[Rfam]
RNA sequence: GUUCAGCCACUGAGGGGAAGGAUGAGAAGCUUCGACCAAGGUUCGAUUCGAGCGCAGCGAGAAAGCGUUGCCGCAGGCAACGACCCGAAGGGCGAGGCGCAACGCGCCGAGUAAUCCUUCCCCCACCACCA
Numbered sequence: 001g002u003u004c005a006g007c008c009a010c011u012g013a014g015g016g017g018a019a020g021g022a023u024g025a026g027a028a029g030c031u032u033c034g035a036c037c038a039a040g041g042u043u044c045g046a047u048u049c050g051a052g053c054g055c056a057g058c059g060a061g062a063a064a065g066c067g068u069u070g071c072c073g074c075a076g077g078c079a080a081c082g083a084c085c086c087g088a089a090g091g092g093c094g095a096g097g098c099g100c101a102a103c104g105c106g107c108c109g110a111g112u113a114a115u116c117c118u119u120c121c122c123c124c125a126c127c128a129c130c131a
Stems, first nucleotide, its partner, number of pairs: 015122007023114001033094002036092002042089004049059002066082006
RNA: RtT RNA